[Rfam]
RNA sequence: CCGUGCUAGACGGGGAGGUAGCGGUGCCCUGUAACUCGCAAUCCGCUAUAGCGAGGUUGAAUUCCUGUCGUAGGUUAUGCGUUGCAGUGUUUGGCGCCUGUGAAUAGUGUUGACGGAUGGGUCCUCCGCAAUGAACGCUUGUGAACCCGGUCAGGUCCGGAAGGAAGCAGCCGUAAGCAAGUUUGUUCAUGUGCCGGAGGAGUGCCUGACCUGAGCUAGGACCAGGAAUGCCUGCUGGACCGCAUGGAUCGAGGACAGGUGCACGG
Numbered sequence: 001c002c003g004u005g006c007u008a009g010a011c012g013g014g015g016a017g018g019u020a021g022c023g024g025u026g027c028c029c030u031g032u033a034a035c036u037c038g039c040a041a042u043c044c045g046c047u048a049u050a051g052c053g054a055g056g057u058u059g060a061a062u063u064c065c066u067g068u069c070g071u072a073g074g075u076u077a078u079g080c081g082u083u084g085c086a087g088u089g090u091u092u093g094g095c096g097c098c099u100g101u102g103a104a105u106a107g108u109g110u111u112g113a114c115g116g117a118u119g120g121g122u123c124c125u126c127c128g129c130a131a132u133g134a135a136c137g138c139u140u141g142u143g144a145a146c147c148c149g150g151u152c153a154g155g156u157c158c159g160g161a162a163g164g165a166a167g168c169a170g171c172c173g174u175a176a177g178c179a180a181g182u183u184u185g186u187u188c189a190u191g192u193g194c195c196g197g198a199g200g201a202g203u204g205c206c207u208g209a210c211c212u213g214a215g216c217u218a219g220g221a222c223c224a225g226g227a228a229u230g231c232c233u234g235c236u237g238g239a240c241c242g243c244a245u246g247g248a249u250c251g252a253g254g255a256c257a258g259g260u261g262c263a264c265g266g
Stems, first nucleotide, its partner, number of pairs: 001266006009058003012030004017025001019023001035055005064259006073250004079243003083239001085237004092230002097226004105219001106217003115211002118208005123200006129191002132189005137182006148173004156165003

Rfam assigns this 266-nucleotide RNA from Paenibacillaceae bacterium GAS479 to the family "Bacterial large signal recognition particle RNA". It scores 202 bits against the family's covariance model. Pairs were carried over by alignment from the consensus structure, which is taken from published work. Lineage of the source: Bacteria > Bacillota > Bacilli > Caryophanales > Paenibacillaceae. Rfam's curators write: The signal recognition particle (SRP) is a universally conserved ribonucleoprotein involved in the co-translational targeting of proteins to membranes.